[Rfam]
Lysine riboswitch aptamer: a 178-nucleotide RNA from Solibacillus sp. R5-41. It scores 124 bits against the family's covariance model. On this family, see Mandal et al., Cell 2003: "Riboswitches Control Fundamental Biochemical Pathways in Bacillus subtilis and Other Bacteria". The organism belongs to Solibacillus, within Bacteria.
Nucleotides: 178
Base pairs, nucleotide, nucleotide: 007172008171009170010169011168016083017082018081019080020079022077023076024075033067034066035065036064037063038062039061087117088116089115090114091113093111094110095109096108097107098106118144119143120142121141122140123139124138125137126136127135128134146163147162148161149160150159151158152157
Number, partner (000 for none) and nucleotide at each position: 001000u002000c003000a004000a005000u006000c007172g008171a009170u010169a011168g012000a013000g014000g015000c016083g017082c018081a019080g020079u021000g022077u023076u024075c025000a026000a027000a028000a029000g030000u031000a032000c033067g034066a035065u036064g037063c038062a039061u040000g041000a042000g043000g044000a045000a046000g047000g048000a049000c050000a051000a052000u053000u054000c055000c056000g057000u058000u059000g060000a061039a062038u063037g064036c065035a066034u067033u068000c069000g070000a071000a072000a073000g074000g075024g076023g077022a078000g079020a080019c081018u082017g083016c084000c085000g086000a087117a088116g089115u090114g091113a092000a093111u094110u095109g096108u097107g098106u099000a100000u101000u102000g103000u104000u105000c106098g107097c108096a109095c110094a111093a112000a113091u114090u115089g116088c117087u118144g119143g120142u121141u122140u123139u124138g125137c126136a127135u128134u129000u130000a131000a132000g133000a134128a135127a136126u137125g138124u139123a140122a141121a142120a143119u144118u145000g146163u147162c148161a149160g150159a151158g152157c153000g154000c155000a156000u157152g158151u159150u160149c161148u162147g163146g164000a165000g166000a167000g168011c169010u170009a171008u172007c173000c174000a175000a176000a177000a178000a